[Rfam]
Shown here is a 117-nucleotide sequence from Cryptotermes secundus, a member of the family "U4atac minor spliceosomal RNA". The family's RNA type in Rfam is spliceosomal small nuclear RNA. A reference for the family is Shukla et al. (2002), "Domains of human U4atac snRNA required for U12-dependent splicing in vivo", Nucleic Acids Res. Lineage of the source: Eukaryota > Hexapoda > Insecta > Pterygota > Cryptotermes.

RNA sequence: CUAGUCCUUGUCUAAGGGAGCAAAAUGUUCAAUGAUCGUAUAGUGAGAGCAUUGUUGCUAACACCCUAUAUACACUAAUGCAUCCUACAGUUAUUGUAGAAUGCAAUUUUUGUAACC
Number, nucleotide and partner (000 for none) at each position: 001c000002u000003a000004g000005u019006c018007c017008u016009u015010g000011u000012c000013u000014a000015a009016g008017g007018g006019a005020g058021c057022a056023a055024a053025a052026u051027g050028u049029u048030c047031a000032a000033u000034g000035a000036u000037c043038g000039u000040a000041u000042a000043g037044u000045g000046a000047g030048a029049g028050c027051a026052u025053u024054g000055u023056u022057g021058c020059u000060a000061a000062c000063a000064c000065c000066c000067u000068a000069u000070a000071u000072a000073c000074a000075c000076u000077a000078a000079u000080g104081c103082a102083u101084c000085c099086u098087a097088c096089a095090g094091u000092u000093a000094u090095u089096g088097u087098a086099g085100a000101a083102u082103g081104c080105a000106a000107u000108u000109u000110u000111u000112g000113u000114a000115a000116c000117c000